This 216-nucleotide sequence from Pseudomonas corrugata belongs to the Rfam family "sRNA regulator of biofilms A". Taxonomically the source falls in Pseudomonas (Bacteria, Pseudomonadati, Pseudomonadales, Pseudomonadaceae). The match comes from Rfam's covariance-model search (102 bits). It is annotated as a small RNA. Important for biofilm formation and pathogenicity. Bacterial strain with deleted SrbA had reduced biofilm mass. As the ability to form biofilms can contribute to the ability a pathogen to thrive within the host, the C. elegans hosts infected with the srbA deleted strain displayed significantly lower mortality rate than the wild-type strain. However, the deletion of srbA had no effect on growth or antibiotic resistance in P. aeruginosa.

RNA sequence: AUCAGGGGCCCUGGCAAGGGCCUUCGGGUCGCCGCUUGCAUCUACCCCGCAAGCCGAUUCGUGUCUGUACCGCCCACAAGGUGUGUUUGACGAGGUUGCGACUGGAACGAAGUUGUCCCGAGGGACGGAAGCGUAACUAGGUAACCCGGCAUCACUCUGAGUUCGUACAAGGGCCCACGACGCCCGAAUGCGCCCGCAGUCCGCCUCUACCUGCUC
Numbered sequence: 001a002u003c004a005g006g007g008g009c010c011c012u013g014g015c016a017a018g019g020g021c022c023u024u025c026g027g028g029u030c031g032c033c034g035c036u037u038g039c040a041u042c043u044a045c046c047c048c049g050c051a052a053g054c055c056g057a058u059u060c061g062u063g064u065c066u067g068u069a070c071c072g073c074c075c076a077c078a079a080g081g082u083g084u085g086u087u088u089g090a091c092g093a094g095g096u097u098g099c100g101a102c103u104g105g106a107a108c109g110a111a112g113u114u115g116u117c118c119c120g121a122g123g124g125a126c127g128g129a130a131g132c133g134u135a136a137c138u139a140g141g142u143a144a145c146c147c148g149g150c151a152u153c154a155c156u157c158u159g160a161g162u163u164c165g166u167a168c169a170a171g172g173g174c175c176c177a178c179g180a181c182g183c184c185c186g187a188a189u190g191c192g193c194c195c196g197c198a199g200u201c202c203g204c205c206u207c208u209a210c211c212u213g214c215u216c
Stems, first nucleotide, its partner, number of pairs: 005024008028058004035053003039049001060148002063146001066143002072082003085137001090134003118128002156160001164192004171185004